MIR396 microRNA precursor family: a 103-nucleotide sequence from Striga hermonthica.
RNA sequence: UGUCAUGCUUUUCCACAGCUUUCUUGAACUUCUGAAGGUACAUUUUGUUCAAAUAUAAACUCACUGCAAAGAAGUUCAAGAAAGCUGUGGGAAGACAUGGCAA
Dot-bracket structure: ..(((((.....(((.((((((.((((.(((((....................................))))).)))).)))))).))).....)))))...
The source organism's lineage runs through Eukaryota, Embryophyta, Spermatophyta, Pentapetalae and Striga. On this family, see Jones-Rhoades and Bartel, Mol Cell 2004: "Computational identification of plant microRNAs and their targets, including a stress-induced miRNA". Rfam links the family to the GO terms miRNA-mediated post-transcriptional gene silencing and RISC complex. It scores 87 bits against the family's covariance model.